[Rfam]
RNA sequence: AUAAACUAAACAUUUGUACCGCAGACAGCAGGUGCCACAUGGCUUAAUCUCCUGCCGAGGUCAUACGAUAGAUAAACUUGUACCACUAUUGUAUAUGCCUCCUUGUCUGCAUAAGGCACGGAGGCUUUUUAUUGCCCGGU
Numbered sequence: 001a002u003a004a005a006c007u008a009a010a011c012a013u014u015u016g017u018a019c020c021g022c023a024g025a026c027a028g029c030a031g032g033u034g035c036c037a038c039a040u041g042g043c044u045u046a047a048u049c050u051c052c053u054g055c056c057g058a059g060g061u062c063a064u065a066c067g068a069u070a071g072a073u074a075a076a077c078u079u080g081u082a083c084c085a086c087u088a089u090u091g092u093a094u095a096u097g098c099c100u101c102c103u104u105g106u107c108u109g110c111a112u113a114a115g116g117c118a119c120g121g122a123g124g125c126u127u128u129u130u131a132u133u134g135c136c137c138g139g140u
Stems, first nucleotide, its partner, number of pairs: 028055005034043003097125006104118005